The record is a 117-nucleotide RNA from Polycladomyces abyssicola, which matches "Ribosomal protein L20 leader" in Rfam.
RNA sequence: GUGAUCAAGCAGAAGCGCCCCGCUUCUCACCUUUCGACGCAUUUGCGCAGUUGGAAGGUUGUCAUCGUCGAUGAUCGGAAGCAAAGUGUGGGCGUGUGCCCGCACUUUUUUGUUAUC
Numbered sequence: 001g002u003g004a005u006c007a008a009g010c011a012g013a014a015g016c017g018c019c020c021c022g023c024u025u026c027u028c029a030c031c032u033u034u035c036g037a038c039g040c041a042u043u044u045g046c047g048c049a050g051u052u053g054g055a056a057g058g059u060u061g062u063c064a065u066c067g068u069c070g071a072u073g074a075u076c077g078g079a080a081g082c083a084a085a086g087u088g089u090g091g092g093c094g095u096g097u098g099c100c101c102g103c104a105c106u107u108u109u110u111u112g113u114u115a116u117c
Stems, first nucleotide, its partner, number of pairs: 011027006029059003036052003039048002087104007
It is annotated as a cis-regulatory leader. The organism belongs to Polycladomyces, within Bacteria.